A member of the RNA family "U11 spliceosomal RNA" from Ficedula albicollis, 130 nucleotides long.
RNA sequence: AAAAAGGGCUUCUGCCGUGUUUGGCACGGGGUGGGGCUAGUCCCGCUCCCGCGGAAUCGACAUCAAGAGAUUUCGGAAGCACAAUUUUUGUGAAGAAGGGCUGCUGGUAACCGCUUGUUCCAGCACCCUG
Number, nucleotide and partner (000 for none) at each position: 001a000002a000003a000004a000005a000006g000007g000008g080009c079010u078011u077012c076013u026014g025015c024016c023017g022018u000019g000020u000021u000022u017023g016024g015025c014026a013027c051028g050029g049030g048031g047032u000033g000034g044035g043036g042037c000038u000039a000040g000041u000042c036043c035044c034045g000046c000047u031048c030049c029050c028051g027052c075053g074054g073055a072056a071057u070058c069059g000060a000061c000062a000063u000064c000065a000066a000067g000068a000069g058070a057071u056072u055073u054074c053075g052076g012077a011078a010079g009080c008081a000082c000083a000084a000085u000086u000087u000088u000089u000090g000091u000092g000093a000094a000095g000096a000097a000098g128099g127100g126101c000102u000103g124104c123105u122106g121107g120108u000109a119110a118111c117112c000113g000114c000115u000116u000117g111118u110119u109120c107121c106122a105123g104124c103125a000126c100127c099128c098129u000130g000
On this family, see Montzka and Steitz, Proc Natl Acad Sci U S A 1988: "Additional low-abundance human small nuclear ribonucleoproteins: U11, U12, etc". The family's consensus secondary structure is taken from published work. Lineage of the source: Eukaryota > Bilateria > Deuterostomia > Coelurosauria > Ficedula.